[Rfam]
RNA sequence: GAAAGAAAGUGGAAGAAAGAGGGCAUAAGAGGAGUGGGAGUGGGAACAUCGAGGAAAUCCUAACUUGGUUUGUUUCAUCUCUAGUGCUGGAGGUGAGAACUUGCUUGGUGUUUCCCGCUGCCUCCCAUUCCUAUUGUUCUCAAGCAUUCCUUCCUAUUCAUUUUUGGC
Numbered sequence: 001g002a003a004a005g006a007a008a009g010u011g012g013a014a015g016a017a018a019g020a021g022g023g024c025a026u027a028a029g030a031g032g033a034g035u036g037g038g039a040g041u042g043g044g045a046a047c048a049u050c051g052a053g054g055a056a057a058u059c060c061u062a063a064c065u066u067g068g069u070u071u072g073u074u075u076c077a078u079c080u081c082u083a084g085u086g087c088u089g090g091a092g093g094u095g096a097g098a099a100c101u102u103g104c105u106u107g108g109u110g111u112u113u114c115c116c117g118c119u120g121c122c123u124c125c126c127a128u129u130c131c132u133a134u135u136g137u138u139c140u141c142a143a144g145c146a147u148u149c150c151u152u153c154c155u156a157u158u159c160a161u162u163u164u165u166g167g168c
Base pairs, nucleotide, nucleotide: 009159011157013155015153016152017151019149020148021147024144026142028140029139030138031137033135035133036132037131038130039129040128041127042126043125044124045123047120048119051116053115054114055113056112057111059110

Shown here is a 168-nucleotide sequence from Triticum urartu, a member of the family "MIR2118 microRNA precursor family".
It scores 94 bits against the family's covariance model.
Taxonomically the source falls in Triticum (Eukaryota, Streptophytina, Mesangiospermae, Pooideae).
A reference for the family is Xue et al. (2009), "Characterization and expression profiles of miRNAs in rice seeds", Nucleic Acids Res.